[Rfam]
RNA sequence: GUUGGGAUGAUGAAAGAAAACCAAAUCAGUCGGAUUCACAUUGAUUUUAAUAAACAUGAUUAUACAACCAGCUACUUCCCGACUAAC
Numbered sequence: 001g002u003u004g005g006g007a008u009g010a011u012g013a014a015a016g017a018a019a020a021c022c023a024a025a026u027c028a029g030u031c032g033g034a035u036u037c038a039c040a041u042u043g044a045u046u047u048u049a050a051u052a053a054a055c056a057u058g059a060u061u062a063u064a065c066a067a068c069c070a071g072c073u074a075c076u077u078c079c080c081g082a083c084u085a086a087c
Stems, first nucleotide, its partner, number of pairs: 001087005
This 87-nucleotide sequence from Papaver nudicaule belongs to the Rfam family "Small nucleolar RNA R12". Rfam links the family to the GO terms nucleolus and RNA processing. On this family, see Chen et al., Nucleic Acids Res 2003: "The high diversity of snoRNAs in plants: identification and comparative study of 120 snoRNA genes from Oryza sativa". From the family's description: snoR12 is a C/D box small nucleolar RNA, which acts as a methylation guide for 25S ribosomal RNA in plants. snoR12 has been alternatively named snoZ44 in Arabidopsis and snoZ131 in rice. Rfam 15.1 lists 992 matches to the family in 220 species.